[Rfam]
RNA sequence: UUUCAGGCUACCUUUAGCGGGGGAACCGGCGGACUCAUUACCCGCCUUGCCUGAAACCUAUCAGUAAUGA
Numbered sequence: 001u002u003u004c005a006g007g008c009u010a011c012c013u014u015u016a017g018c019g020g021g022g023g024a025a026c027c028g029g030c031g032g033a034c035u036c037a038u039u040a041c042c043c044g045c046c047u048u049g050c051c052u053g054a055a056a057c058c059u060a061u062c063a064g065u066a067a068u069g070a
Base pairs, nucleotide, nucleotide: 001056002055003054004053005052006051007050008049011022012021013020014019028046029045030044031043032042039067
Shown here is a 70-nucleotide RNA sequence from Methyloprofundus sedimenti, a member of the family "int-alpA RNA". Acidobacteria (1 example), Planctomycetes (1 example), Proteobacteria. It scores 36 bits against the family's covariance model. By type it is a small RNA.